[Rfam]
Ruegeria cis52 sRNA: a 182-nucleotide sequence from Pseudaminobacter soli. A reference for the family is Rivers et al. (2016), "Experimental Identification of Small Non-Coding RNAs in the Model Marine Bacterium Ruegeria pomeroyi DSS-3", Front Microbiol.
RNA sequence: UGCGCAGCGCGUGCUUGACCACCACGCCACCGAAGCUGAGCCCCUUGAGGCGCGCCGUGCGGAUAUAUUGCUGGGUCAUCACCUCGACCAUCGAGGCGCGCGUCAUGCGGGCGAUGUAGCCGAUGCCGUAGAUCGCCAGCGUCAUCACCGGCAGCGUGAAAUUGUAGAAGGUCACGCCCUGG
Numbered sequence: 001u002g003c004g005c006a007g008c009g010c011g012u013g014c015u016u017g018a019c020c021a022c023c024a025c026g027c028c029a030c031c032g033a034a035g036c037u038g039a040g041c042c043c044c045u046u047g048a049g050g051c052g053c054g055c056c057g058u059g060c061g062g063a064u065a066u067a068u069u070g071c072u073g074g075g076u077c078a079u080c081a082c083c084u085c086g087a088c089c090a091u092c093g094a095g096g097c098g099c100g101c102g103u104c105a106u107g108c109g110g111g112c113g114a115u116g117u118a119g120c121c122g123a124u125g126c127c128g129u130a131g132a133u134c135g136c137c138a139g140c141g142u143c144a145u146c147a148c149c150g151g152c153a154g155c156g157u158g159a160a161a162u163u164g165u166a167g168a169a170g171g172u173c174a175c176g177c178c179c180u181g182g
Stems, first nucleotide, its partner, number of pairs: 003141003007137001009136003014131002016128002020125002041110002046105003050101005055075002059071004082096005145182003150173003154165003